[Rfam]
The family of this 63-nucleotide sequence from Mytilus galloprovincialis is "Selenocysteine insertion sequence 1". Pairs were carried over by alignment from the consensus structure, which is taken from published work.
RNA sequence: CAUAUUUCAUGAUGGUAUAAUACUAAACCCAUAACAGAAGGUAUUGUGCCUGAUAUUCAUAUG
Numbered sequence: 001c002a003u004a005u006u007u008c009a010u011g012a013u014g015g016u017a018u019a020a021u022a023c024u025a026a027a028c029c030c031a032u033a034a035c036a037g038a039a040g041g042u043a044u045u046g047u048g049c050c051u052g053a054u055a056u057u058c059a060u061a062u063g
Stems, first nucleotide, its partner, number of pairs: 001063005014050010029037001
It is annotated as a cis-regulatory element.